About this RNA:
The family of this 75-nucleotide RNA sequence from Streptomyces malaysiensis is "ASpks TB sRNA". On this family, see Arnvig and Young, Mol Microbiol 2009: "Identification of small RNAs in Mycobacterium tuberculosis". The base pairs follow the family's consensus structure, which is taken from published work. The family has 77 seed sequences and 9,052 matches in Rfam 15.1. A search with the family's covariance model found it, with a score of 72 bits. It is annotated as an antisense RNA.
[Rfam]
Nucleotides: 075
Stems, first nucleotide, its partner, number of pairs: 014026004033069001038065002045058001047056003
Number, partner (000 for none) and nucleotide at each position: 001000c002000u003000u004000g005000a006000u007000c008000g009000a010000g011000c012000c013000g014026a015025g016024c017023c018000a019000c020000a021000g022000g023017g024016g025015c026014u027000g028000g029000u030000c031000g032000u033069c034000g035000g036000u037000g038065u039064g040000u041000u042000c043000a044000c045058g046000g047056c048055c049054g050000u051000a052000c053000g054049u055048g056047g057000c058045c059000a060000a061000c062000a063000g064039c065038g066000c067000c068000u069033g070000c071000g072000c073000c074000u075000c